[Rfam]
Nucleotides: 089
Stems, first nucleotide, its partner, number of pairs: 006084002009081005020034004036069003039065002043063003049057002
Number, partner (000 for none) and nucleotide at each position: 001000a002000u003000g004000g005000a006084u007083u008000c009081g010080u011079c012078a013077g014000g015000a016000g017000a018000g019000a020034g021033u022032g023031c024000c025000c026000c027000c028000g029000u030000g031023g032022c033021a034020c035000c036069g037068c038067c039065g040064a041000a042000g043063g044062c045061g046000c047000a048000g049057g050056g051000a052000g053000a054000c055000c056050c057049c058000g059000a060000a061045c062044g063043c064040u065039c066000a067038g068037g069036c070000a071000a072000a073000a074000g075000g076000a077013c078012u079011g080010a081009c082000c083007a084006a085000g086000c087000g088000c089000c
The record is an 89-nucleotide RNA from Paenacidovorax monticola, which matches "Glycine riboswitch aptamer" in Rfam. Pairs were carried over by alignment from the consensus structure. Taxonomically the source falls in Paenacidovorax (Bacteria, Pseudomonadati, Betaproteobacteria, Burkholderiales).